A member of the RNA family "TeloSII non coding RNA 43" from Arabidopsis thaliana, 288 nucleotides long. Rfam classes the family as a small RNA. Rfam's curators put it in the seed alignment. From the family's description: Located downstream of the TeloSII elements. Rfam links the family to the GO term ncRNA polyadenylation.
[Rfam]
RNA sequence: CCAUCACUAACACGUGUUUCAAUUAGAACAAACAGAGAGCUUCCAUCACAGACCGACUUUAACCUUGCCGUUCACCACCGAUUCCGGUGACAAGAGUCAUCGUCGAUAUUAAUUCGUUCAGUAAAUUUUGUGGUUUUUCACCGUUUAACAAAAUCGGAGCCCAUAAGAGGAUAACAGCUAAAGGGAAUGGAUAGUAUGCUUCAGUUCUUCUACUUCUUCUCUUUAAUUAAAAUUGCAAAUCACUGGGAUAAUUAAAAAACCUUUCCCAAUUAAAAAACCAAACACUCA
Number, nucleotide and partner (000 for none) at each position: 001c000002c000003a000004u000005c000006a000007c000008u000009a000010a000011c000012a000013c000014g285015u284016g283017u282018u281019u000020c000021a000022a000023u277024u276025a000026g000027a000028a000029c000030a000031a000032a000033c000034a222035g221036a220037g219038a218039g217040c000041u000042u000043c000044c000045a000046u000047c000048a000049c000050a000051g206052a205053c204054c000055g202056a201057c000058u000059u000060u000061a000062a000063c000064c000065u000066u000067g000068c000069c198070g197071u196072u000073c194074a000075c000076c000077a000078c000079c190080g000081a188082u187083u186084c185085c184086g101087g100088u099089g098090a097091c096092a000093a000094g000095a000096g091097u090098c089099a088100u087101c086102g000103u000104c000105g000106a000107u000108a000109u000110u000111a000112a000113u181114u180115c000116g178117u177118u176119c000120a000121g000122u000123a000124a000125a000126u168127u167128u166129u165130g164131u163132g162133g161134u000135u000136u159137u158138u157139c156140a000141c000142c000143g154144u153145u152146u151147a000148a000149c000150a000151a146152a145153a144154u143155c000156g139157g138158a137159g136160c000161c133162c132163a131164u130165a129166a128167g127168a126169g000170g000171a000172u000173a000174a000175c000176a118177g117178c116179u000180a114181a113182a000183g000184g085185g084186a083187a082188u081189g000190g079191a000192u000193a000194g073195u000196a071197u070198g069199c000200u000201u056202c055203a000204g053205u052206u051207c000208u000209u000210c000211u000212a000213c000214u000215u000216c000217u039218u038219c037220u036221c035222u034223u000224u000225a000226a000227u000228u000229a000230a000231a000232a000233u000234u000235g000236c000237a000238a000239a000240u000241c000242a000243c000244u268245g267246g266247g265248a264249u000250a000251a000252u000253u000254a000255a000256a000257a000258a000259a000260c000261c000262u000263u000264u248265c247266c246267c245268a244269a000270u000271u000272a000273a000274a000275a000276a024277a023278c000279c000280a000281a018282a017283c016284a015285c014286u000287c000288a000